[Rfam]
RNA sequence: CGGUCACCCGCAGGAGAGUGAUGGCCGCCAGGCCAUCCGCCGAAGGCGCAAACUCCAAUAAUCGCUCAGGCUCAGCACUGCGGACCCCCA
Numbered sequence: 001c002g003g004u005c006a007c008c009c010g011c012a013g014g015a016g017a018g019u020g021a022u023g024g025c026c027g028c029c030a031g032g033c034c035a036u037c038c039g040c041c042g043a044a045g046g047c048g049c050a051a052a053c054u055c056c057a058a059u060a061a062u063c064g065c066u067c068a069g070g071c072u073c074a075g076c077a078c079u080g081c082g083g084a085c086c087c088c089c090a
Base pairs, nucleotide, nucleotide: 008083009082010081011080012079013078020037021036022035023034039071040070041069042067043066046065047064048063052059

A member of the RNA family "Glycine riboswitch aptamer" from Pseudomonas fulva, 90 nucleotides long. Rfam's curators write: This family represents the bacterial glycine riboswitch. Taxonomically the source falls in Pseudomonas fulva (Bacteria, Pseudomonadati, Pseudomonadales, Pseudomonadaceae). It scores 50 bits against the family's covariance model.